This 150-nucleotide sequence belongs to the Rfam family "RT-3 RNA". The sequence is in the family's curated seed alignment. The family's RNA type in Rfam is small RNA.
[Rfam]
RNA sequence: UUUUGGCGUACAACGAUGGGGACGUGUCCCCGAUGUCGUGCCAAUGGGAAUGAGCCUCAGUAAUAGCGUGAGCAAUCACGGAAAACUGAAAUAUAUAACGUGGGGUAGAGUUUAGUAGGGACAGAAUGUCAGCCGAAAAAGUUAGGCCCC
Numbered sequence: 001u002u003u004u005g006g007c008g009u010a011c012a013a014c015g016a017u018g019g020g021g022a023c024g025u026g027u028c029c030c031c032g033a034u035g036u037c038g039u040g041c042c043a044a045u046g047g048g049a050a051u052g053a054g055c056c057u058c059a060g061u062a063a064u065a066g067c068g069u070g071a072g073c074a075a076u077c078a079c080g081g082a083a084a085a086c087u088g089a090a091a092u093a094u095a096u097a098a099c100g101u102g103g104g105g106u107a108g109a110g111u112u113u114a115g116u117a118g119g120g121a122c123a124g125a126a127u128g129u130c131a132g133c134c135g136a137a138a139a140a141g142u143u144a145g146g147c148c149c150c
Base pairs, nucleotide, nucleotide: 003044004043005042006041007040008039011038013036014035015034018031019030020029021028022027046056047055057089058088059087060086061085067080068079069078070077071076102150103149104148105147106146108143109142111140112139113138118133120130121129122128